[Rfam]
RNA sequence: UUAUGAUAAUGGCAAACGUAUCGAAAGGUAGGGAUGCAAAACAACAGGCCUAAGGAAAAUUGCUAAGGUAGCUGGGUUACCAUU
Numbered sequence: 001u002u003a004u005g006a007u008a009a010u011g012g013c014a015a016a017c018g019u020a021u022c023g024a025a026a027g028g029u030a031g032g033g034a035u036g037c038a039a040a041a042c043a044a045c046a047g048g049c050c051u052a053a054g055g056a057a058a059a060u061u062g063c064u065a066a067g068g069u070a071g072c073u074g075g076g077u078u079a080c081c082a083u084u
Base pairs, nucleotide, nucleotide: 012037013036017032019030020029021028022027040078041077042076045074046073047072048069049068050067055063057061